[Rfam]
RNA sequence: UUAAAAGCUGUGAGAGGAAAUAGUAGCAAGAGGGUUAUUCUUGUAGAGAGCCGAUGGUUGGUGAAAAUCGGCGGAUGACGCUUGUGAAUCCAUCCUUGAGUAGAGUAUGGAAAGCCGCAAUUUGGUUAGUAAAUACUUUCGGAUAAAACCGUUAUCGUUUUAAGGUGGAAGGCGUAUGCUUUCAACUAGGGUGGCAACGCGGGUAACUCUCGUCCCUUUU
Numbered sequence: 001u002u003a004a005a006a007g008c009u010g011u012g013a014g015a016g017g018a019a020a021u022a023g024u025a026g027c028a029a030g031a032g033g034g035u036u037a038u039u040c041u042u043g044u045a046g047a048g049a050g051c052c053g054a055u056g057g058u059u060g061g062u063g064a065a066a067a068u069c070g071g072c073g074g075a076u077g078a079c080g081c082u083u084g085u086g087a088a089u090c091c092a093u094c095c096u097u098g099a100g101u102a103g104a105g106u107a108u109g110g111a112a113a114g115c116c117g118c119a120a121u122u123u124g125g126u127u128a129g130u131a132a133a134u135a136c137u138u139u140c141g142g143a144u145a146a147a148a149c150c151g152u153u154a155u156c157g158u159u160u161u162a163a164g165g166u167g168g169a170a171g172g173c174g175u176a177u178g179c180u181u182u183c184a185a186c187u188a189g190g191g192u193g194g195c196a197a198c199g200c201g202g203g204u205a206a207c208u209c210u211c212g213u214c215c216c217u218u219u220u
Base pairs, nucleotide, nucleotide: 007101008100015096016095017094018093026085027084028083029082030081039075040074041073050072051071052070053069054068055067103138104137105136106135107134108133140151141150142149168183169182170181171180172179173178188217189216190215191214199213200212201211202210203209
RNA: T-box leader
Organism: Niallia endozanthoxylica